[Rfam]
RNA sequence: GGGGCACGCUUAGAGCCCCGCGCAGGGUUGUGUUAAUAGUGCCGCCUUUGGCCGGACGGUGCGGUUAGUGAAUC
Number, nucleotide and partner (000 for none) at each position: 001g019002g018003g017004g016005c015006a000007c000008g000009c000010u000011u000012a000013g000014a000015g005016c004017c003018c002019c001020g000021c000022g000023c000024a000025g000026g000027g000028u000029u000030g000031u000032g000033u068034u067035a066036a065037u064038a000039g062040u061041g060042c059043c058044g057045c000046c055047u054048u000049u000050g000051g000052c000053c000054g047055g046056a000057c044058g043059g042060u041061g040062c039063g000064g037065u036066u035067a034068g033069u000070g000071a000072a000073u000074c000

This 74-nucleotide RNA from Prevotella sp. KH2C16 belongs to the Rfam family "L13-Bacteroidia ribosomal protein leader". Rfam classes the family as a cis-regulatory leader. The literature on the family includes a 2020 paper in BMC Microbiol by Eckert and Weinberg, "Discovery of 20 novel ribosomal leader candidates in bacteria and archaea". Lineage of the source: Bacteria > Pseudomonadati > Bacteroidales > Prevotellaceae > Prevotella. The base pairs follow the family's consensus structure, which is taken from published work.